Record summary:
Shown here is an 80-nucleotide RNA from Phoenix dactylifera, a member of the family "Small nucleolar RNA R12". A search with the family's covariance model found it, with a score of 62 bits. For this family Rfam cites "The high diversity of snoRNAs in plants: identification and comparative study of 120 snoRNA genes from Oryza sativa" (Chen et al., Nucleic Acids Res, 2003). The organism belongs to Phoenix, within Eukaryota. Gene Ontology terms of the family: nucleolus and RNA processing. From the family's description: snoR12 is a C/D box small nucleolar RNA, which acts as a methylation guide for 25S ribosomal RNA in plants. snoR12 has been alternatively named snoZ44 in Arabidopsis and snoZ131 in rice.

[Rfam]
RNA sequence: AUGUUGGAUGAUGAACUGAACAUUCGGAUUCCCAUUGAUUUCCUUAAGAUGAUAUUAUUAACCAGCUACUUCUGACACAU
Numbered sequence: 001a002u003g004u005u006g007g008a009u010g011a012u013g014a015a016c017u018g019a020a021c022a023u024u025c026g027g028a029u030u031c032c033c034a035u036u037g038a039u040u041u042c043c044u045u046a047a048g049a050u051g052a053u054a055u056u057a058u059u060a061a062c063c064a065g066c067u068a069c070u071u072c073u074g075a076c077a078c079a080u
Stems, first nucleotide, its partner, number of pairs: 001080004006076001